RNA sequence: UGGAAAAAAACAACACAGUGGGUAAGUUAGGAGAAGGUGACUUUUUCUCUUUUUCUGAAGGUUGGAGCUCUGCCCAUUAUAUUAAGAAGUUGGUUUCAGACUACAAUUCAAGGAUAUUACAUGGAACAAAAAGCAACUGAGCUUUCA
Numbered sequence: 001u002g003g004a005a006a007a008a009a010a011c012a013a014c015a016c017a018g019u020g021g022g023u024a025a026g027u028u029a030g031g032a033g034a035a036g037g038u039g040a041c042u043u044u045u046u047c048u049c050u051u052u053u054u055c056u057g058a059a060g061g062u063u064g065g066a067g068c069u070c071u072g073c074c075c076a077u078u079a080u081a082u083u084a085a086g087a088a089g090u091u092g093g094u095u096u097c098a099g100a101c102u103a104c105a106a107u108u109c110a111a112g113g114a115u116a117u118u119a120c121a122u123g124g125a126a127c128a129a130a131a132a133g134c135a136a137c138u139g140a141g142c143u144u145u146c147a
Base pairs, nucleotide, nucleotide: 003146004145005144006143079117080116081115082114083113088108089107090106091105092104
RNA: Small nucleolar RNA J26